[Rfam]
RNA: SAM riboswitch aptamer (S box leader)
RNA sequence: CUCUUAUCCUGAGAGGUGGAGGGACUGGCCCGAUGAAGCCCGGCAACCUGCCAAUAGCAGCAAGGCAUGGUGCCAAUACCUGCAGCCUUAUGGCUGGAUGAUAAGAG
Numbered sequence: 001c002u003c004u005u006a007u008c009c010u011g012a013g014a015g016g017u018g019g020a021g022g023g024a025c026u027g028g029c030c031c032g033a034u035g036a037a038g039c040c041c042g043g044c045a046a047c048c049u050g051c052c053a054a055u056a057g058c059a060g061c062a063a064g065g066c067a068u069g070g071u072g073c074c075a076a077u078a079c080c081u082g083c084a085g086c087c088u089u090a091u092g093g094c095u096g097g098a099u100g101a102u103a104a105g106a107g
Base pairs, nucleotide, nucleotide: 001107002106003105004104005103006102007101008100013041015040016039017038021031022030023029025082027080028079042074043073044072045071047070048069049067050066051065052064078099083096084095085094086093087092